The record is an 82-nucleotide RNA sequence, which matches "c-di-GMP-II-GAG riboswitch aptamer" in Rfam. The literature on the family includes a 2017 paper in Proc Natl Acad Sci U S A by Weinberg et al., "Bioinformatic analysis of riboswitch structures uncovers variant classes with altered ligand specificity".
[Rfam]
Nucleotides: 082
Stems, first nucleotide, its partner, number of pairs: 001082001003080001005078001007076005013057003022051006029044001035069002037065005
Number, partner (000 for none) and nucleotide at each position: 001082c002000c003080c004000a005078u006000a007076g008075c009074g010073g011072g012000a013057g014056g015055c016000u017000c018000u019000g020000a021000c022051g023050c024049g025048c026047g027046g028000c029044c030000c031000a032000c033000a034000c035069g036068g037065c038064c039063g040062c041061c042000c043000g044029g045000a046027c047026c048025g049024c050023g051022c052000c053000g054000a055015g056014c057013c058000a059000c060000u061041g062040g063039c064038g065037g066000g067000a068036c069035c070000g071000a072011c073010c074009c075008g076007c077000g078005a079000c080003g081000c082001g